[Rfam]
RNA sequence: ACCGGUCCUCGGUAGUGGCCUCCGGAACGAAAGCGUCCGUGGGCCUCGAUCGAAGACCGGA
Numbered sequence: 001a002c003c004g005g006u007c008c009u010c011g012g013u014a015g016u017g018g019c020c021u022c023c024g025g026a027a028c029g030a031a032a033g034c035g036u037c038c039g040u041g042g043g044c045c046u047c048g049a050u051c052g053a054a055g056a057c058c059g060g061a
Base pairs, nucleotide, nucleotide: 002060003059004058005057006056007055009053010052011051012050013049017045018044019043020042021041023039024038025037026036028035029034

Actino-pnp RNA: a 61-nucleotide RNA from Spelaeicoccus albus. The family's consensus secondary structure is taken from published work. Lineage of the source: Bacteria > Actinomycetota > Actinomycetes > Brevibacteriaceae > Spelaeicoccus.